A member of the RNA family "Bacterial RNase P class A" from Aliikangiella coralliicola, 394 nucleotides long. It scores 323 bits against the family's covariance model. It is annotated as a ribozyme.

RNA sequence: UGGGUUGACUGGGCAGUCGCUGUUUGAUGUUUUUAAUUAAAUAUCGAGCGGAGGAAAGUCCGGACUUUACAGAGCAGAGUGCCAGGUAACGCCUGGGGGGCUAAAGCCCACGGAAAGUGCCGCAGAAAAUAUACCGCCUGGUUUACCAGGUAAGGGUGAAAAGGUGUCGGUAAGAGCGCACCGCGCUGAUGGUAACAUCAGUGGCAGGGUAAACCCCACUCGAAGCAAGGCCAAAUAGGGUUCCGGUAGACAAGCGAUAUUGCUAAGGUAGUAUCGUGGCUCUUGAGACGUGGCUCGCGUUGGAACCGGGUAGGCUGCUUGAGCGUUAUGGUGACGUAACGCCUAGAUGAAUGAUUGCCCACGACAGAAUCCGGCUUACAGGUUAACCCAAAUU
Numbered sequence: 001u002g003g004g005u006u007g008a009c010u011g012g013g014c015a016g017u018c019g020c021u022g023u024u025u026g027a028u029g030u031u032u033u034u035a036a037u038u039a040a041a042u043a044u045c046g047a048g049c050g051g052a053g054g055a056a057a058g059u060c061c062g063g064a065c066u067u068u069a070c071a072g073a074g075c076a077g078a079g080u081g082c083c084a085g086g087u088a089a090c091g092c093c094u095g096g097g098g099g100g101c102u103a104a105a106g107c108c109c110a111c112g113g114a115a116a117g118u119g120c121c122g123c124a125g126a127a128a129a130u131a132u133a134c135c136g137c138c139u140g141g142u143u144u145a146c147c148a149g150g151u152a153a154g155g156g157u158g159a160a161a162a163g164g165u166g167u168c169g170g171u172a173a174g175a176g177c178g179c180a181c182c183g184c185g186c187u188g189a190u191g192g193u194a195a196c197a198u199c200a201g202u203g204g205c206a207g208g209g210u211a212a213a214c215c216c217c218a219c220u221c222g223a224a225g226c227a228a229g230g231c232c233a234a235a236u237a238g239g240g241u242u243c244c245g246g247u248a249g250a251c252a253a254g255c256g257a258u259a260u261u262g263c264u265a266a267g268g269u270a271g272u273a274u275c276g277u278g279g280c281u282c283u284u285g286a287g288a289c290g291u292g293g294c295u296c297g298c299g300u301u302g303g304a305a306c307c308g309g310g311u312a313g314g315c316u317g318c319u320u321g322a323g324c325g326u327u328a329u330g331g332u333g334a335c336g337u338a339a340c341g342c343c344u345a346g347a348u349g350a351a352u353g354a355u356u357g358c359c360c361a362c363g364a365c366a367g368a369a370u371c372c373g374g375c376u377u378a379c380a381g382g383u384u385a386a387c388c389c390a391a392a393u394u
Base pairs, nucleotide, nucleotide: 001390002389003388004387005386006385007384008383009382010381011379012359013358014357015356016355017354018353020051021050022049023048024047025046026045027044028043029042030041031040032039056377057376058375060374061373062372063371064370065225066224067223068222072296073295074294075293077221078220079219080218081217082096083095084094085093086092097111098109099108100107101106112216113215117214118213119210120209121208134155135154136151137150138149139148140147141146163182164181165180166179168178169177183205184203185202186201187200188199189198190197191196229316230315231314232313239307240306241305242304243303244302287301288300289299290298291297323342324341325340326339327338328337329336330335